[Rfam]
RNA: mir-160 microRNA precursor family
Nucleotides: 094
Stems, first nucleotide, its partner, number of pairs: 001094006008087004013082002016079009027068005
Number, partner (000 for none) and nucleotide at each position: 001094a002093u003092g004091u005090g006089c007000c008087u009086g010085g011084c012000u013082c014081c015000c016079u017078g018077u019076a020075u021074g022073c023072c024071a025000c026000u027068c028067a029066u030065c031064u032000a033000g034000a035000g036000c037000a038000a039000c040000g041000a042000c043000a044000g045000c046000u047000u048000g049000g050000u051000a052000g053000g054000g055000u056000u057000g058000c059000c060000u061000a062000u063000a064031a065030g066029a067028u068027g069000g070000a071024u072023g073022g074021c075020g076019u077018g078017c079016a080000u081014g082013g083000u084011g085010c086009c087008a088000a089006g090005c091004a092003u093002a094001u